A member of the RNA family "mir-166 microRNA precursor family" from Dichanthelium oligosanthes, 104 nucleotides long.
A search with the family's covariance model found it, with a score of 72 bits.
Rfam describes the family as follows. This family represents the plant microRNA (miRNA) precursor mir-166.
RNA sequence: GUUGAGGGGAAUGUUGUCUGGUCGGAGACCUAACACCAAGGAUCUCAUCCAUGGAGCAUCGCAGCAUGGUGGAUGGUUUCGGACCAGGCUUCAUUCCCCCCAAC
Numbered sequence: 001g002u003u004g005a006g007g008g009g010a011a012u013g014u015u016g017u018c019u020g021g022u023c024g025g026a027g028a029c030c031u032a033a034c035a036c037c038a039a040g041g042a043u044c045u046c047a048u049c050c051a052u053g054g055a056g057c058a059u060c061g062c063a064g065c066a067u068g069g070u071g072g073a074u075g076g077u078u079u080c081g082g083a084c085c086a087g088g089c090u091u092c093a094u095u096c097c098c099c100c101c102a103a104c
Stems, first nucleotide, its partner, number of pairs: 001104004006099008016089006025080002